[Rfam]
RNA sequence: AUGCUUUAAACUUAUGAGUAAGGGAAAAUAACAAUUCAGGGUGACGCCCGAAUCUUCAUUGCUAAUGUGAGAUGAAUUUUUGAGCAGGUAAAGGUUGCCCUUAAGGUGACCCACCUACUUUGUGGGAUGCCUGAGAGUGGCGAUCUGCCUG
Numbered sequence: 001a002u003g004c005u006u007u008a009a010a011c012u013u014a015u016g017a018g019u020a021a022g023g024g025a026a027a028a029u030a031a032c033a034a035u036u037c038a039g040g041g042u043g044a045c046g047c048c049c050g051a052a053u054c055u056u057c058a059u060u061g062c063u064a065a066u067g068u069g070a071g072a073u074g075a076a077u078u079u080u081u082g083a084g085c086a087g088g089u090a091a092a093g094g095u096u097g098c099c100c101u102u103a104a105g106g107u108g109a110c111c112c113a114c115c116u117a118c119u120u121u122g123u124g125g126g127a128u129g130c131c132u133g134a135g136a137g138u139g140g141c142g143a144u145c146u147g148c149c150u151g
Stems, first nucleotide, its partner, number of pairs: 004023005034053004039048002055071005085151005092146007101135002104132005110126005
The record is a 151-nucleotide sequence from Carlito syrichta, which matches "U12 minor spliceosomal RNA" in Rfam. Gene Ontology terms of the family: mRNA branch site recognition, U12 snRNP and pre-mRNA branch point binding. The base pairs follow the family's consensus structure. It scores 130 bits against the family's covariance model. Lineage of the source: Eukaryota > Eumetazoa > Chordata > Craniata > Carlito. The literature on the family includes a 1997 paper in Trends Biochem Sci by Tarn and Steitz, "Pre-mRNA splicing: the discovery of a new spliceosome doubles the challenge".